[Rfam]
RNA sequence: GACGACAAAGGCAAACCCGCCGCGAGGCGGGGGCGCAAAGCCAGGGGCCUCGAGACGAGGCAGCCCGGCUACCGAAG
Number, nucleotide and partner (000 for none) at each position: 001g000002a000003c074004g073005a000006c000007a000008a000009a000010g000011g036012c035013a000014a000015a000016c031017c030018c029019g028020c027021c026022g000023c000024g000025a000026g021027g020028c019029g018030g017031g016032g000033g000034c063035g012036c011037a000038a000039a070040g069041c068042c067043a000044g066045g065046g064047g061048c060049c059050u000051c000052g000053a000054g000055a000056c000057g000058a000059g049060g048061c047062a000063g034064c046065c045066c044067g042068g041069c040070u039071a000072c000073c004074g003075a000076a000077g000
c-di-GMP-I-GGC riboswitch aptamer: a 77-nucleotide RNA sequence from Rubrobacter marinus. A search with the family's covariance model found it, with a score of 66 bits. Its family is annotated with cyclic-di-GMP binding in the Gene Ontology. The source organism's lineage runs through Bacteria, Bacillati, Actinomycetota, Rubrobacterales and Rubrobacter. The literature on the family includes a 2009 paper in Nat Struct Mol Biol by Kulshina et al., "Recognition of the bacterial second messenger cyclic diguanylate by its cognate riboswitch".